This 68-nucleotide sequence from Piaya cayana belongs to the Rfam family "mir-139 microRNA precursor family". Its family is annotated with miRNA-mediated post-transcriptional gene silencing and RISC complex in the Gene Ontology.

RNA sequence: CUGUUGUCUACAGUGCAUGUGUCUCCAGUCUGAUUCCGCCCGCUGGAGCCGCAGCCCUGUUGGAAAAC
Numbered sequence: 001c002u003g004u005u006g007u008c009u010a011c012a013g014u015g016c017a018u019g020u021g022u023c024u025c026c027a028g029u030c031u032g033a034u035u036c037c038g039c040c041c042g043c044u045g046g047a048g049c050c051g052c053a054g055c056c057c058u059g060u061u062g063g064a065a066a067a068c
Base pairs, nucleotide, nucleotide: 007064008063009062010060011059012058013057015055016054018053019052020051021050023048024047025046026045027044028043029042
Lineage of the source: Eukaryota > Gnathostomata > Theropoda > Coccyzidae > Piaya. Pairs were carried over by alignment from the consensus structure, which was predicted with RNAalifold.